[Rfam]
Annotation:
Actinobacteria sRNA Ms_IGR-5: a 207-nucleotide RNA from Naumannella cuiyingiana. The organism belongs to Naumannella, within Bacteria. Rfam classes the family as a small RNA.
RNA sequence: ACGCGAGAGAGGAGGUGGUCCGAGUAAUGAAUGACUUGUGGACACGUGAGGUGGCUCGCCGCUGACCAGCGGCAUCGCCAGGACCGCGCCGGGUGACCGGCGCAGCUGUUGGUAGCAGCGAAUCCCAGCGAGCUACCCGGACCCGCAGGCGCCGGAAGAGUCCAUCCGGCACGCCUCCUUCGCGAGGCAGCCUGCGGGUCUGUCCAU
Numbered sequence: 001a002c003g004c005g006a007g008a009g010a011g012g013a014g015g016u017g018g019u020c021c022g023a024g025u026a027a028u029g030a031a032u033g034a035c036u037u038g039u040g041g042a043c044a045c046g047u048g049a050g051g052u053g054g055c056u057c058g059c060c061g062c063u064g065a066c067c068a069g070c071g072g073c074a075u076c077g078c079c080a081g082g083a084c085c086g087c088g089c090c091g092g093g094u095g096a097c098c099g100g101c102g103c104a105g106c107u108g109u110u111g112g113u114a115g116c117a118g119c120g121a122a123u124c125c126c127a128g129c130g131a132g133c134u135a136c137c138c139g140g141a142c143c144c145g146c147a148g149g150c151g152c153c154g155g156a157a158g159a160g161u162c163c164a165u166c167c168g169g170c171a172c173g174c175c176u177c178c179u180u181c182g183c184g185a186g187g188c189a190g191c192c193u194g195c196g197g198g199u200c201u202g203u204c205c206a207u
Stems, first nucleotide, its partner, number of pairs: 014059001017056003060120005065113004070108003138202013151170006